This 106-nucleotide RNA sequence from Sulfobacillus acidophilus belongs to the Rfam family "SAM riboswitch aptamer (S box leader)".
Rfam links the family to the GO term regulation of gene expression.
The base pairs follow the family's consensus structure, which is taken from published work.
RNA sequence: UUCUUAUCCAGAGUGGUGGAGGGACUGGCCCGAUGAAGCCCGGCAACCCCGCAAAACGUGGGAGGGUGCCAAUUCCGGAAGAACUCAUGGUUCUUCAAGAUGAGAA
Dot-bracket structure: ((((((((....(.(((...(((.[[[[)))......))))((((.((((..........))..))))))...(]]]]((((((.....))))))..)))))))))